[Rfam]
RNA sequence: GUGAGUGGGGUGGUUGGCAUGGGUCGCCACGUCUCAGGACUUGAUGCUGUGCCCGCAGCCUCCUGUUGUCCUCCUCACGCAUGCCCACCCUUUACCCCACUCC
Numbered sequence: 001g002u003g004a005g006u007g008g009g010g011u012g013g014u015u016g017g018c019a020u021g022g023g024u025c026g027c028c029a030c031g032u033c034u035c036a037g038g039a040c041u042u043g044a045u046g047c048u049g050u051g052c053c054c055g056c057a058g059c060c061u062c063c064u065g066u067u068g069u070c071c072u073c074c075u076c077a078c079g080c081a082u083g084c085c086c087a088c089c090c091u092u093u094a095c096c097c098c099a100c101u102c103c
Stems, first nucleotide, its partner, number of pairs: 003102009012089003016085006023078002036072005042065001043062002046059005